This 153-nucleotide RNA from Falseniella ignava belongs to the Rfam family "Lysine riboswitch aptamer".
It scores 60 bits against the family's covariance model.
[Rfam]
RNA sequence: AAACUAGGGUGAGGUUGCUGAUAAUAUAAGUAAAGCGCCAGCUUGAAAGGAUUAUUGGCCGAAGUGCACUAAACUGCACUGGGGAUAGGUUGAAGAAGUCUAUCACUCUGAUGGGUUGUUGCCCAAACAACUUAUCAAGGAGCUCCUAGCUUG
Numbered sequence: 001a002a003a004c005u006a007g008g009g010u011g012a013g014g015u016u017g018c019u020g021a022u023a024a025u026a027u028a029a030g031u032a033a034a035g036c037g038c039c040a041g042c043u044u045g046a047a048a049g050g051a052u053u054a055u056u057g058g059c060c061g062a063a064g065u066g067c068a069c070u071a072a073a074c075u076g077c078a079c080u081g082g083g084g085a086u087a088g089g090u091u092g093a094a095g096a097a098g099u100c101u102a103u104c105a106c107u108c109u110g111a112u113g114g115g116u117u118g119u120u121g122c123c124c125a126a127a128c129a130a131c132u133u134a135u136c137a138a139g140g141a142g143c144u145c146c147u148a149g150c151u152u153g
Stems, first nucleotide, its partner, number of pairs: 007147003011143001017059009033044004063080006081107002084104008109137010